[Rfam]
RNA sequence: UUAACAGUUUACUAGGGUUCCGUCUGGAAACAGAGUCUGGUCCGAGAGUAAACGGUCCCGUGCAUGGGGGACUACACGGAAGGAUAAAAACCUGGGAGAU
Dot-bracket structure: ......((((((..((...(((((((....))))..).)).))....))))))((((((.(....).)))))).(.[...(((.......))).)..]..